[Rfam]
RNA sequence: AUUUGUACUUGAAUACUGGCUCGUAUAAUCCUGGAGAUAUGGUCUGGGAGUUUCUACAAGGGAACCGUAAAUGCCCUUACUAUGAGUGGAAGAAUCCUAUUC
Numbered sequence: 001a002u003u004u005g006u007a008c009u010u011g012a013a014u015a016c017u018g019g020c021u022c023g024u025a026u027a028a029u030c031c032u033g034g035a036g037a038u039a040u041g042g043u044c045u046g047g048g049a050g051u052u053u054c055u056a057c058a059a060g061g062g063a064a065c066c067g068u069a070a071a072u073g074c075c076c077u078u079a080c081u082a083u084g085a086g087u088g089g090a091a092g093a094a095u096c097c098u099a100u101u102c
Base pairs, nucleotide, nucleotide: 019087020086021085022084023083024082025081029049030048031047032046033045034044035043058078059077060076061075062074064072
RNA: Purine riboswitch aptamer
Organism: Sporomusa malonica